[Rfam]
RNA: nhaA-I RNA
RNA sequence: GGGUGUCAACCGCGUCGGGCGGUGAGGCAGGACGUGCGAUGGUCGGGCCGCCACG
Numbered sequence: 001g002g003g004u005g006u007c008a009a010c011c012g013c014g015u016c017g018g019g020c021g022g023u024g025a026g027g028c029a030g031g032a033c034g035u036g037c038g039a040u041g042g043u044c045g046g047g048c049c050g051c052c053a054c055g
Base pairs, nucleotide, nucleotide: 005028006027007026009023010022011021037055038054040053041052042051043050
Dot-bracket structure: ....(((.(((.........)))..)))........((.((((......))))))